Overview
A member of the RNA family "6S / SsrS RNA" from Lutibaculum baratangense, 159 nucleotides long. By type it is a non-coding RNA gene. The match comes from Rfam's covariance-model search (88 bits). Rfam's curators write: E. coli 6S RNA was the first non coding RNA to be sequenced, but its function was unknown until recently. It consists of 184 nucleotides that fold into an extended hairpin structure with a large single-stranded internal bulge. The 6S RNA specifically associates with RNA polymerase holoenzyme containing the sigma70 specificity factor. This interaction represses expression from a sigma70-dependent promoter during stationary phase. 6S RNA homologs have recently been identified in most bacterial genomes. Many Gram-positive species have two copies of 6S RNA. In Bacillus subtilis, both copies appear to interact with RNA polymerase holoenzyme containing the housekeeping sigma factor and be expressed during different stages of growth. In many proteobacteria, 6S RNA may be processed from a transcript encoding homologs of the E. coli YgfA protein which is a putative 5-formyltetrahydrofolate cycloligase activity.
[Rfam]
RNA sequence: UCGGGGCUGCGCGGUGCGACAGGAGACACGCAUCCCCGGGGCCUUAUCGAUCCUAAAGGGAGCUGUACCUUCCCUUGUCCGUGGACUUGGGGAAACGGCGCCCACCUACGUAUGUAGGUUCCCGGGAUCGAAACCUCCAUCGGCCGCCGCGGCUCCGAC
Numbered sequence: 001u002c003g004g005g006g007c008u009g010c011g012c013g014g015u016g017c018g019a020c021a022g023g024a025g026a027c028a029c030g031c032a033u034c035c036c037c038g039g040g041g042c043c044u045u046a047u048c049g050a051u052c053c054u055a056a057a058g059g060g061a062g063c064u065g066u067a068c069c070u071u072c073c074c075u076u077g078u079c080c081g082u083g084g085a086c087u088u089g090g091g092g093a094a095a096c097g098g099c100g101c102c103c104a105c106c107u108a109c110g111u112a113u114g115u116a117g118g119u120u121c122c123c124g125g126g127a128u129c130g131a132a133a134c135c136u137c138c139a140u141c142g143g144c145c146g147c148c149g150c151g152g153c154u155c156c157g158a159c
Stems, first nucleotide, its partner, number of pairs: 002157010012146004017142003033127004038122006058103003062099005071092004077086001